[Rfam]
RNA: BsrC
RNA sequence: UUUACCUAAUACAAUGAAAGCCCUACCUCUCUUCCAUCCUUACGGCUCCUAGACCGCGCCAGUGUGAAUCAGGCCCUGUAAUUUCUU
Numbered sequence: 001u002u003u004a005c006c007u008a009a010u011a012c013a014a015u016g017a018a019a020g021c022c023c024u025a026c027c028u029c030u031c032u033u034c035c036a037u038c039c040u041u042a043c044g045g046c047u048c049c050u051a052g053a054c055c056g057c058g059c060c061a062g063u064g065u066g067a068a069u070c071a072g073g074c075c076c077u078g079u080a081a082u083u084u085c086u087u
Base pairs, nucleotide, nucleotide: 035066036065039062040061041058043056044055045054047052